[Rfam]
Record summary
Mammalian CPEB3 ribozyme: a 77-nucleotide RNA from Alligator sinensis. Rfam links the family to the GO term RNA nuclease activity.

RNA sequence: AGUUGCAAACUUGAGGCUGUAGCAGAAGCAGUAUUGGUGCAGCCCUGUCAGAUUCCAACAAAUCUGCAAAUUCUGCU
Numbered sequence: 001a002g003u004u005g006c007a008a009a010c011u012u013g014a015g016g017c018u019g020u021a022g023c024a025g026a027a028g029c030a031g032u033a034u035u036g037g038u039g040c041a042g043c044c045c046u047g048u049c050a051g052a053u054u055c056c057a058a059c060a061a062a063u064c065u066g067c068a069a070a071u072u073c074u075g076c077u
Base pairs, nucleotide, nucleotide: 013045015044016043017042018041021077022076023075024074025073026072027071028040029039030038049066050065051064052063053062054061